[Rfam]
RNA: c-di-AMP riboswitch aptamer (ydaO/yuaA leader)
RNA sequence: CCAUUCCAAUCGCUGAAUCCCGUUUUUGGGAGGGGGGAACCACGCAUAGCAAUGUCUUCGUUCAUGGGCUACAUGGGGUGAAUCCCGGCAAGCACCGGGUAGGGUGACUCUCAGCACCCGAAUCCGACAGCUAACCUCGUAAGCGUUAUGAGAGGAGGA
Dot-bracket structure: ..........((((...(((.......)))(.((((....((...............................))(((.....((((........))))..((((..........))))...))).........)))).).))))..............
Numbered sequence: 001c002c003a004u005u006c007c008a009a010u011c012g013c014u015g016a017a018u019c020c021c022g023u024u025u026u027u028g029g030g031a032g033g034g035g036g037g038a039a040c041c042a043c044g045c046a047u048a049g050c051a052a053u054g055u056c057u058u059c060g061u062u063c064a065u066g067g068g069c070u071a072c073a074u075g076g077g078g079u080g081a082a083u084c085c086c087g088g089c090a091a092g093c094a095c096c097g098g099g100u101a102g103g104g105u106g107a108c109u110c111u112c113a114g115c116a117c118c119c120g121a122a123u124c125c126g127a128c129a130g131c132u133a134a135c136c137u138c139g140u141a142a143g144c145g146u147u148a149u150g151a152g153a154g155g156a157g158g159a
Stems, first nucleotide, its partner, number of pairs: 011145004018030003031140001033138004041075002076125003084099004102119004